[Rfam]
RNA: Archaeal large subunit ribosomal RNA, nucleotides 542 to 638
RNA sequence: GACGGGGCAUACAAGGCCCCACGAAAAACGACCGAGGUGCGAACCUCUAGUAGGAAUCGUGGGGAGCCGAUGUUCCGUCGUGCGUUUUGAAAAACGA
Numbered sequence: 001g002a003c004g005g006g007g008c009a010u011a012c013a014a015g016g017c018c019c020c021a022c023g024a025a026a027a028a029c030g031a032c033c034g035a036g037g038u039g040c041g042a043a044c045c046u047c048u049a050g051u052a053g054g055a056a057u058c059g060u061g062g063g064g065a066g067c068c069g070a071u072g073u074u075c076c077g078u079c080g081u082g083c084g085u086u087u088u089g090a091a092a093a094a095c096g097a
Stems, first nucleotide, its partner, number of pairs: 001079010015068002019062006029053001034047005083096003